Shown here is a 74-nucleotide RNA from Elysia chlorotica, a member of the family "mir-8/mir-141/mir-200 microRNA precursor family". A reference for the family is Lagos-Quintana et al. (2001), "Identification of novel genes coding for small expressed RNAs", Science. Rfam 15.1 lists 2,669 matches to the family in 883 species. The family is grouped with related families in Rfam's "mir-8 microRNA precursor clan". The family's consensus secondary structure was predicted with RNAalifold. The match comes from Rfam's covariance-model search (60 bits).

RNA sequence: CCAGACGUCUUACCUAGCAGCAUUGGAUGGUCUCCCCCUGCCUGUCUCUAAUACUGUCAGGUAAAGAUGUCUGG
Numbered sequence: 001c002c003a004g005a006c007g008u009c010u011u012a013c014c015u016a017g018c019a020g021c022a023u024u025g026g027a028u029g030g031u032c033u034c035c036c037c038c039u040g041c042c043u044g045u046c047u048c049u050a051a052u053a054c055u056g057u058c059a060g061g062u063a064a065a066g067a068u069g070u071c072u073g074g
Stems, first nucleotide, its partner, number of pairs: 002073008010064006017057004022052006
Dot-bracket structure: .((((((((((((((.((((.((((((...................)))))).)))).)))))).)))))))).